[Rfam]
RNA sequence: GUGCGUCGUCGCAGUCUACGCCGACGCACGGUCUGCUGGUGGGCCGCCCGUACGGCACGGGGCGGCAAGAGACGAGAGGA
Numbered sequence: 001g002u003g004c005g006u007c008g009u010c011g012c013a014g015u016c017u018a019c020g021c022c023g024a025c026g027c028a029c030g031g032u033c034u035g036c037u038g039g040u041g042g043g044c045c046g047c048c049c050g051u052a053c054g055g056c057a058c059g060g061g062g063c064g065g066c067a068a069g070a071g072a073c074g075a076g077a078g079g080a
Base pairs, nucleotide, nucleotide: 001029002028003027004026005025006024007023008022010020011019031073032072033071034070036069037068043066044065045064046063047062048061049060
Dot-bracket structure: ((((((((.((.......)).)))))))).((((.((.....(((((((..........))))))).)))))).......